[Rfam]
RNA sequence: GCUACGCCCGGACGAACUUCCCAGAUCGGCCGACACAAAGUGGUCGGUGGGAUCUUCGUCCGUUUGUAUC
Number, nucleotide and partner (000 for none) at each position: 001g000002c000003u068004a067005c066006g065007c000008c000009c062010g061011g060012a059013c058014g057015a056016a000017c000018u000019u052020c051021c050022c000023a000024g048025a000026u000027c046028g045029g044030c043031c042032g000033a000034c000035a000036c000037a000038a000039a000040g000041u000042g031043g030044u029045c028046g027047g000048u024049g000050g021051g020052a019053u000054c000055u000056u015057c014058g013059u012060c011061c010062g009063u000064u000065u006066g005067u004068a003069u000070c000

Rfam assigns this 70-nucleotide RNA from Heliconius melpomene to the family "mir-278 microRNA precursor family". Rfam links the family to the GO terms RISC complex and miRNA-mediated post-transcriptional gene silencing. The source organism's lineage runs through Eukaryota, Opisthokonta, Eumetazoa, Neolepidoptera and Heliconius. The family's consensus secondary structure was predicted with RNAalifold.